[Rfam]
RNA sequence: ACACCACUUAAACAUGGAUGUGCUUGCUUUCAAACUAAAAAAGGAAGUGCUUCCAAGUUUCAGGGAUGG
Numbered sequence: 001a002c003a004c005c006a007c008u009u010a011a012a013c014a015u016g017g018a019u020g021u022g023c024u025u026g027c028u029u030u031c032a033a034a035c036u037a038a039a040a041a042a043g044g045a046a047g048u049g050c051u052u053c054c055a056a057g058u059u060u061c062a063g064g065g066a067u068g069g
Base pairs, nucleotide, nucleotide: 002068003067005065007063008062010060011059012058013057015055016054017053018052020050021049022048023047024046025045027043028042
About this RNA
Rfam assigns this 69-nucleotide sequence from Moschus moschiferus to the family "mir-302 microRNA precursor family". The source organism's lineage runs through Eukaryota, Eumetazoa, Dipnotetrapodomorpha, Pecora and Moschus. Its family is annotated with miRNA-mediated post-transcriptional gene silencing and RISC complex in the Gene Ontology. The family's consensus secondary structure was predicted with RNAalifold. For this family Rfam cites "Human embryonic stem cells express a unique set of microRNAs" (Suh et al., Dev Biol, 2004).